A member of the RNA family "MIR6024 microRNA precursor family" from Nicotiana tabacum, 103 nucleotides long. Taxonomically the source falls in Nicotiana (Eukaryota, Euphyllophyta, Mesangiospermae, Pentapetalae). Its family is annotated with RISC complex and miRNA-mediated post-transcriptional gene silencing in the Gene Ontology. Pairs were carried over by alignment from the consensus structure, which was predicted with RNAalifold.
[Rfam]
RNA sequence: GGGCGGAAGUGGAGAAACAACACUUGCUAAAAGAAAUUCCUUUUAGCAACUCAAUAUUAGGCUUUGGAGUUUUUUUAGCCAGAGUUGUUUUCCCUCUUCUCAA
Numbered sequence: 001g002g003g004c005g006g007a008a009g010u011g012g013a014g015a016a017a018c019a020a021c022a023c024u025u026g027c028u029a030a031a032a033g034a035a036a037u038u039c040c041u042u043u044u045a046g047c048a049a050c051u052c053a054a055u056a057u058u059a060g061g062c063u064u065u066g067g068a069g070u071u072u073u074u075u076u077a078g079c080c081a082g083a084g085u086u087g088u089u090u091u092c093c094c095u096c097u098u099c100u101c102a103a
Stems, first nucleotide, its partner, number of pairs: 003101001005099001007098003011094002014091008023082002026079010037068003